[Rfam]
RNA sequence: UAUAAAUAAAAAGCGCCAGGACAGAUAUUUUAUCUGUUGACGAGGAGAAGGAAGCGGCACUCAAAAAGAUGUGCCGUAUCGAAGUAUUCGGCGGAUACCUUCCGGUUGUUACAAUCGUAAGAGACGAAGCAAAAACUGCAGGCAACUGCAAAACAAAACAGUCUCAUGUAACUGA
Dot-bracket structure: ...................((((((((...))))))))........(((((...(((..............................))).......)))))((((((...))))))...(((((...........(((((....)))))..........)))))..........
Numbered sequence: 001u002a003u004a005a006a007u008a009a010a011a012a013g014c015g016c017c018a019g020g021a022c023a024g025a026u027a028u029u030u031u032a033u034c035u036g037u038u039g040a041c042g043a044g045g046a047g048a049a050g051g052a053a054g055c056g057g058c059a060c061u062c063a064a065a066a067a068g069a070u071g072u073g074c075c076g077u078a079u080c081g082a083a084g085u086a087u088u089c090g091g092c093g094g095a096u097a098c099c100u101u102c103c104g105g106u107u108g109u110u111a112c113a114a115u116c117g118u119a120a121g122a123g124a125c126g127a128a129g130c131a132a133a134a135a136c137u138g139c140a141g142g143c144a145a146c147u148g149c150a151a152a153a154c155a156a157a158a159c160a161g162u163c164u165c166a167u168g169u170a171a172c173u174g175a
Stems, first nucleotide, its partner, number of pairs: 020038008047102005055090003103117006121165005137150005

Rfam assigns this 175-nucleotide RNA sequence from Ruminiclostridium sufflavum to the family "glmS glucosamine-6-phosphate activated ribozyme aptamer". A search with the family's covariance model found it, with a score of 73 bits. Lineage of the source: Bacteria > Eubacteriales > Oscillospiraceae > Ruminiclostridium > Ruminiclostridium sufflavum.